[Rfam]
Nucleotides: 052
Base pairs, nucleotide, nucleotide: 006048008046009045010044011043012042014040015039016038018036019035020034021033022031
Number, partner (000 for none) and nucleotide at each position: 001000u002000u003000a004000a005000a006048a007000a008046u009045g010044u011043a012042a013000g014040u015039a016038u017000g018036u019035c020034u021033c022031a023000u024000g025000u026000a027000a028000u029000a030000u031022u032000u033021g034020g035019g036018a037000u038016g039015u040014a041000c042012u043011u044010a045009u046008a047000c048006u049000a050000a051000a052000a
Source information
The family of this 52-nucleotide RNA sequence from Carlito syrichta is "mir-1302 microRNA precursor family". A search with the family's covariance model found it, with a score of 65 bits. Taxonomically the source falls in Carlito (Eukaryota, Opisthokonta, Dipnotetrapodomorpha, Amniota). For this family Rfam cites "Application of massively parallel sequencing to microRNA profiling and discovery in human embryonic stem cells" (Morin et al., Genome Res, 2008).